RNA sequence: GGCUCCGGUGCGACGGGCGGUCUUUCUCCAAAGAACCCGGGAGAGAAAGAACCCCACCAAACCCCACCCCUCCUCCCGCCCGGCAGGCCGUCUCACCCUCUCGGGUGAACAUCGCCAACUCGGCUGGAUUUCGGAGCGGUUGUUACCCCUACGCUCAGCGCAGCACGACACCGCGACCGCACAACAACCGCAGACGUACGACGGCCCUCGCCGGGACUGCAAUCCCAGUGCGAGGGCCUGACCACCAAGGAAGACAAGCCCCUUCCCG
Numbered sequence: 001g002g003c004u005c006c007g008g009u010g011c012g013a014c015g016g017g018c019g020g021u022c023u024u025u026c027u028c029c030a031a032a033g034a035a036c037c038c039g040g041g042a043g044a045g046a047a048a049g050a051a052c053c054c055c056a057c058c059a060a061a062c063c064c065c066a067c068c069c070c071u072c073c074u075c076c077c078g079c080c081c082g083g084c085a086g087g088c089c090g091u092c093u094c095a096c097c098c099u100c101u102c103g104g105g106u107g108a109a110c111a112u113c114g115c116c117a118a119c120u121c122g123g124c125u126g127g128a129u130u131u132c133g134g135a136g137c138g139g140u141u142g143u144u145a146c147c148c149c150u151a152c153g154c155u156c157a158g159c160g161c162a163g164c165a166c167g168a169c170a171c172c173g174c175g176a177c178c179g180c181a182c183a184a185c186a187a188c189c190g191c192a193g194a195c196g197u198a199c200g201a202c203g204g205c206c207c208u209c210g211c212c213g214g215g216a217c218u219g220c221a222a223u224c225c226c227a228g229u230g231c232g233a234g235g236g237c238c239u240g241a242c243c244a245c246c247a248a249g250g251a252a253g254a255c256a257a258g259c260c261c262c263u264u265c266c267c268g
Base pairs, nucleotide, nucleotide: 007246008245009244010243016080017079018078019077093108094107095106096105097104098103123172125157126156127155203238204237205236206235207234209232210231211230213226214225215224216223249266250265251264252263253262